[Rfam]
The record is a 235-nucleotide RNA from Daldinia sp. EC12, which matches "Small nucleolar RNA snR191" in Rfam.
The base pairs follow the family's consensus structure, which was predicted with WAR.
RNA sequence: CCCCAAUGGUUUUAGUCAGGGGACUUCCUCUUAUUCUUCGAUGGAAGUCAUCCGUUACGUCAUUGGGAGAUCAAAUAUCUCAACUUGCUGUUCUUGGCCCUUGGGCUGGGAACUGGCGGAGCCUCGUCUUGAGGCACCACCAUUAGUUAGGCCGUGUUUCAUUUGAGUUGAGGUCUAUCUCUACCCGUUUUAGGGUAGCACCGUGGUAGAUUUCUUAGUAGUGAUUCAUACAUAC
Numbered sequence: 001c002c003c004c005a006a007u008g009g010u011u012u013u014a015g016u017c018a019g020g021g022g023a024c025u026u027c028c029u030c031u032u033a034u035u036c037u038u039c040g041a042u043g044g045a046a047g048u049c050a051u052c053c054g055u056u057a058c059g060u061c062a063u064u065g066g067g068a069g070a071u072c073a074a075a076u077a078u079c080u081c082a083a084c085u086u087g088c089u090g091u092u093c094u095u096g097g098c099c100c101u102u103g104g105g106c107u108g109g110g111a112a113c114u115g116g117c118g119g120a121g122c123c124u125c126g127u128c129u130u131g132a133g134g135c136a137c138c139a140c141c142a143u144u145a146g147u148u149a150g151g152c153c154g155u156g157u158u159u160c161a162u163u164u165g166a167g168u169u170g171a172g173g174u175c176u177a178u179c180u181c182u183a184c185c186c187g188u189u190u191u192a193g194g195g196u197a198g199c200a201c202c203g204u205g206g207u208a209g210a211u212u213u214c215u216u217a218g219u220a221g222u223g224a225u226u227c228a229u230a231c232a233u234a235c
Base pairs, nucleotide, nucleotide: 003066004065005064006063007062019053020052021051022049023048024047025046026045027044028043079110080109081108082107084105085104086103087098088097089096115141116140118138119137121135122134123133124132125131126130154229155228156227159224160223161222162221170214171213172212173211176208177207178206179205181198182197183196184195185194186193
The organism belongs to Daldinia, within Eukaryota. A reference for the family is Badis et al. (2003), "A snoRNA that guides the two most conserved pseudouridine modifications within rRNA confers a growth advantage in yeast", RNA. Rfam links the family to the GO terms RNA processing and nucleolus.